RNA sequence: AUGAGGAUAAUGAGAGAUAUUCAUUUAGAAUGGCCGAAGAAGAAAUAUAGUGAUUUUGUCAAAUGACUAUAGAAGCUUUCAGGCAAAGGGAUUGUUAUCCGAUG
Numbered sequence: 001a002u003g004a005g006g007a008u009a010a011u012g013a014g015a016g017a018u019a020u021u022c023a024u025u026u027a028g029a030a031u032g033g034c035c036g037a038a039g040a041a042g043a044a045a046u047a048u049a050g051u052g053a054u055u056u057u058g059u060c061a062a063a064u065g066a067c068u069a070u071a072g073a074a075g076c077u078u079u080c081a082g083g084c085a086a087a088g089g090g091a092u093u094g095u096u097a098u099c100c101g102a103u104g
Stems, first nucleotide, its partner, number of pairs: 006099008019031004033084003036080002040078003046071006